Source information:
A member of the RNA family "azaaromatic riboswitch aptamer (yjdF RNA)" from Ruminococcus sp. CAG:563, 121 nucleotides long.
[Rfam]
RNA sequence: UUACGCAGGGAUAAAAACGCAACGUGCUUUCUGCACCAGAGCCGGUAGGUAGCCCGGCCGUCUGAGUUCACUCAGGUAAGUAACCCUCCCCUCCGGGUCGUCCGUUCCCUGAAAUAUAUUU
Number, nucleotide and partner (000 for none) at each position: 001u000002u000003a000004c000005g000006c111007a110008g109009g108010g107011a106012u000013a000014a000015a000016a000017a000018c000019g000020c000021a000022a000023c000024g000025u000026g000027c000028u000029u000030u000031c000032u000033g000034c000035a000036c000037c000038a000039g000040a000041g058042c057043c056044g055045g054046u000047a000048g000049g000050u000051a000052g000053c000054c045055c044056g043057g042058c041059c000060g077061u076062c075063u074064g073065a072066g000067u000068u000069c000070a000071c000072u065073c064074a063075g062076g061077u060078a000079a000080g000081u000082a000083a000084c000085c000086c000087u000088c097089c096090c095091c000092u000093c000094c000095g090096g089097g088098u000099c000100g000101u000102c000103c000104g000105u000106u011107c010108c009109c008110u007111g006112a000113a000114a000115u000116a000117u000118a000119u000120u000121u000
Pairs were carried over by alignment from the consensus structure, which is taken from published work. A search with the family's covariance model found it, with a score of 68 bits.